[Rfam]
RNA sequence: CACCUCUGCUAGGGGUCUUCAUUGAAAAAUGAAGUGAGAUACACCCUUCGAACCUGAUACGGGUCAUGCCGUCGUAGGGAAGCACUCAACUGCUCCU
Numbered sequence: 001c002a003c004c005u006c007u008g009c010u011a012g013g014g015g016u017c018u019u020c021a022u023u024g025a026a027a028a029a030u031g032a033a034g035u036g037a038g039a040u041a042c043a044c045c046c047u048u049c050g051a052a053c054c055u056g057a058u059a060c061g062g063g064u065c066a067u068g069c070c071g072u073c074g075u076a077g078g079g080a081a082g083c084a085c086u087c088a089a090c091u092g093c094u095c096c097u
Stems, first nucleotide, its partner, number of pairs: 007084004011047004016041001017034005053078004059072004

Background:
This 97-nucleotide RNA sequence from Sulfuriferula nivalis belongs to the Rfam family "TPP riboswitch aptamer (THI element)". The organism belongs to Sulfuriferula, within Bacteria. A search with the family's covariance model found it, with a score of 69 bits.